Record summary:
Shown here is a 108-nucleotide RNA sequence from Nocardioides sp. S5, a member of the family "Glycine riboswitch aptamer". A search with the family's covariance model found it, with a score of 62 bits.
RNA sequence: ACAUCCCGUGCGGGAGAGUCACCACGGCUGGUCCACGGACCGACCGGUGUGCGCCGAAGGGGCAAUUCCUCCCCGGAACCUCUCAGGCACCCGGACCGCACGGGUUGG
Numbered sequence: 001a002c003a004u005c006c007c008g009u010g011c012g013g014g015a016g017a018g019u020c021a022c023c024a025c026g027g028c029u030g031g032u033c034c035a036c037g038g039a040c041c042g043a044c045c046g047g048u049g050u051g052c053g054c055c056g057a058a059g060g061g062g063c064a065a066u067u068c069c070u071c072c073c074c075g076g077a078a079c080c081u082c083u084c085a086g087g088c089a090c091c092c093g094g095a096c097c098g099c100a101c102g103g104g105u106u107g108g
Base pairs, nucleotide, nucleotide: 006103007102008101009100010099011098012097013096020051021050022049053088054087055086056084057083060082061081062080066076067075